Plant signal recognition particle RNA: a 307-nucleotide RNA from Acer yangbiense. Rfam 15.1 lists 4,988 matches to the family in 266 species. It is annotated as a non-coding RNA gene. Pairs were carried over by alignment from the consensus structure, which is taken from published work. It scores 272 bits against the family's covariance model.
RNA sequence: GCCGAGCUCAGUAACGUGGGCUUGUGACCCAAGUGGGGGCAUUAGAGUGGUGGAACAUUGGGUCAAUUUCCAAUGGAUCGGGUCCAGUGCGGUAUUAUACUGGCCCGCCCGUUCCAAGCUGAGAGCUGGGCCAUGGGCUUUCUUCGAAGGUUGAAGGGUCAUGGUUCCUAGAGUGGAGGACACCGCGUGAGGCUGGUUUCACAGAGCAGCGAUCACCUCCCGCUCUUGGCAGUGGAAGGAUAACGGGCCGGUGCCUCUUGGGCCCAAUAUGGUCCAAUGGGUUGACCCUAAUUGAACCACCACUUUU
Numbered sequence: 001g002c003c004g005a006g007c008u009c010a011g012u013a014a015c016g017u018g019g020g021c022u023u024g025u026g027a028c029c030c031a032a033g034u035g036g037g038g039g040c041a042u043u044a045g046a047g048u049g050g051u052g053g054a055a056c057a058u059u060g061g062g063u064c065a066a067u068u069u070c071c072a073a074u075g076g077a078u079c080g081g082g083u084c085c086a087g088u089g090c091g092g093u094a095u096u097a098u099a100c101u102g103g104c105c106c107g108c109c110c111g112u113u114c115c116a117a118g119c120u121g122a123g124a125g126c127u128g129g130g131c132c133a134u135g136g137g138c139u140u141u142c143u144u145c146g147a148a149g150g151u152u153g154a155a156g157g158g159u160c161a162u163g164g165u166u167c168c169u170a171g172a173g174u175g176g177a178g179g180a181c182a183c184c185g186c187g188u189g190a191g192g193c194u195g196g197u198u199u200c201a202c203a204g205a206g207c208a209g210c211g212a213u214c215a216c217c218u219c220c221c222g223c224u225c226u227u228g229g230c231a232g233u234g235g236a237a238g239g240a241u242a243a244c245g246g247g248c249c250g251g252u253g254c255c256u257c258u259u260g261g262g263c264c265c266a267a268u269a270u271g272g273u274c275c276a277a278u279g280g281g282u283u284g285a286c287c288c289u290a291a292u293u294g295a296a297c298c299a300c301c302a303c304u305u306u307u
Stems, first nucleotide, its partner, number of pairs: 001040003004023007028037003044306010056294002058291003061287006070280003074276006080265008089257001091255002100251008109239002112237005118230009128167009138157005145150001168173001175220005186211003193204003